Nucleotides: 091
Stems, first nucleotide, its partner, number of pairs: 003053001005051003009047004015041002017079004024037004068086005
Number, partner (000 for none) and nucleotide at each position: 001000c002000c003053u004000a005051c006050g007049c008000a009047c010046g011045g012044c013000g014000a015041c016040u017079g018078g019077c020076g021000u022000a023000c024037g025036c026035g027034g028000a029000a030000g031000a032000g033000a034027c035026c036025g037024c038000g039000g040016g041015g042000g043000a044012g045011c046010c047009g048000g049007g050006c051005g052000c053003g054000c055000u056000c057000a058000a059000g060000c061000c062000g063000a064000a065000g066000a067000g068086g069085u070084g071083c072082c073000g074000c075000c076020c077019g078018c079017c080000u081000g082072g083071g084070c085069a086068c087000c088000c089000c090000g091000g

The record is a 91-nucleotide sequence from Streptomyces jumonjinensis, which matches "ZMP/ZTP riboswitch aptamer (pfl RNA motif)" in Rfam. Lineage of the source: Bacteria > Bacillati > Actinomycetes > Kitasatosporales > Streptomyces.